Shown here is a 302-nucleotide RNA sequence from Danionella cerebrum, a member of the family "Nuclear RNase P". Taxonomically the source falls in Danionella (Eukaryota, Gnathostomata, Actinopteri, Cypriniformes). Rfam classes the family as a ribozyme. A search with the family's covariance model found it, with a score of 205 bits. For this family Rfam cites "Structural implications of novel diversity in eucaryal RNase P RNA" (Marquez et al., RNA, 2005).
RNA sequence: GUAGAAGGAAACUCACUGUAGAGGUCACAUACAGAGUGCUCGUCACUCUCCAAUCACCUCGGGGAAGGUCUGAGACAAGAGCCAAUCACUGUCCUUGCAGGACAUUAUCAGAAAUGAUGAGCGAGUGCACAGAAACGUUGGUCCAGUGCGCACUCUAGCACAAGAUGUUAAUUCUCGCAGAGAGUUCGAGAAUCAACUGAUGCGUUGCGUGCGAACUUGGAAACACUCGUGGCUGGCGAAUGAGUUCGAUGUGUGAGCUGACAAACACUGUCAGAACCCAAUUCAGACUACUCUCCCUCUGC
Number, nucleotide and partner (000 for none) at each position: 001g302002u301003a300004g299005a000006a000007g296008g295009a294010a000011a000012c257013u256014c255015a254016c253017u000018g000019u000020a000021g060022a059023g058024g057025u000026c000027a000028c000029a000030u000031a000032c000033a000034g048035a047036g046037u045038g044039c000040u000041c000042g000043u000044c038045a037046c036047u035048c034049u000050c000051c000052a000053a000054u000055c000056a000057c024058c023059u022060c021061g000062g000063g000064g000065a000066a000067g000068g000069u000070c286071u285072g284073a283074g282075a000076c000077a000078a000079g000080a234081g233082c232083c231084a000085a000086u000087c000088a000089c000090u104091g103092u102093c101094c100095u000096u000097g000098c000099a000100g094101g093102a092103c091104a090105u120106u119107a118108u117109c116110a115111g000112a000113a000114a000115u110116g109117a108118u107119g106120a105121g230122c229123g228124a227125g226126u225127g224128c000129a000130c000131a000132g000133a000134a000135a000136c000137g000138u000139u000140g000141g216142u215143c000144c000145a000146g000147u000148g000149c000150g000151c000152a000153c000154u000155c000156u000157a000158g000159c000160a000161c000162a000163a000164g000165a000166u000167g000168u000169u000170a000171a000172u000173u000174c000175u000176c000177g000178c000179a000180g000181a000182g000183a000184g000185u000186u000187c000188g000189a000190g000191a000192a000193u000194c000195a000196a000197c000198u000199g000200a000201u000202g000203c000204g000205u000206u000207g000208c000209g000210u000211g000212c000213g000214a000215a142216c141217u000218u000219g000220g000221a000222a000223a000224c127225a126226c125227u124228c123229g122230u121231g083232g082233c081234u080235g000236g000237c000238g000239a000240a000241u000242g000243a000244g000245u000246u000247c000248g000249a000250u000251g000252u000253g016254u015255g014256a013257g012258c274259u273260g272261a271262c270263a269264a000265a000266c000267a000268c000269u263270g262271u261272c260273a259274g258275a000276a000277c000278c000279c000280a000281a000282u074283u073284c072285a071286g070287a000288c000289u000290a000291c000292u000293c000294u009295c008296c007297c000298u000299c004300u003301g002302c001